[Rfam]
RNA sequence: ACCUGGGGUAGAGGUGCUUUAAUAAAGAGUAGGUAUAAGUAGUUGGCAAACGAUGAUUUAUGCUGAAAGGUAUUACGGCCGAAGGAAUAACUUAUUAUGCGGUAAUUUAUUUCUGGGGAUUCAUAAAAUAUGUGAAUAACUGUCACGAAAGUGUUGAGCUACAAGGUGC
Numbered sequence: 001a002c003c004u005g006g007g008g009u010a011g012a013g014g015u016g017c018u019u020u021a022a023u024a025a026a027g028a029g030u031a032g033g034u035a036u037a038a039g040u041a042g043u044u045g046g047c048a049a050a051c052g053a054u055g056a057u058u059u060a061u062g063c064u065g066a067a068a069g070g071u072a073u074u075a076c077g078g079c080c081g082a083a084g085g086a087a088u089a090a091c092u093u094a095u096u097a098u099g100c101g102g103u104a105a106u107u108u109a110u111u112u113c114u115g116g117g118g119a120u121u122c123a124u125a126a127a128a129u130a131u132g133u134g135a136a137u138a139a140c141u142g143u144c145a146c147g148a149a150a151g152u153g154u155u156g157a158g159c160u161a162c163a164a165g166g167u168g169c
Base pairs, nucleotide, nucleotide: 008162009161010160011159016079017078018077020075021074022073023072024071032064033063034062035061036060037059038058039057083114084113085112086111087110088109089108090107092105093104094103115141116140119137120136121135122134123133124132125131144153145152146151
RNA: Lysine riboswitch aptamer
Organism: Clostridium chromiireducens